[Rfam]
RNA: tRNA
Organism: Bacillus sp.
RNA sequence: GGUCCCGUAGUGUAGUGGUUAACAUGCCUGCCUGUCACGCAGGAGAUCGCGGGUUCGAUGCCGUCGGGACCG
Numbered sequence: 001g002g003u004c005c006c007g008u009a010g011u012g013u014a015g016u017g018g019u020u021a022a023c024a025u026g027c028c029u030g031c032c033u034g035u036c037a038c039g040c041a042g043g044a045g046a047u048c049g050c051g052g053g054u055u056c057g058a059u060g061c062c063g064u065c066g067g068g069a070c071c072g
Stems, first nucleotide, its partner, number of pairs: 001071007010025004027043005049064004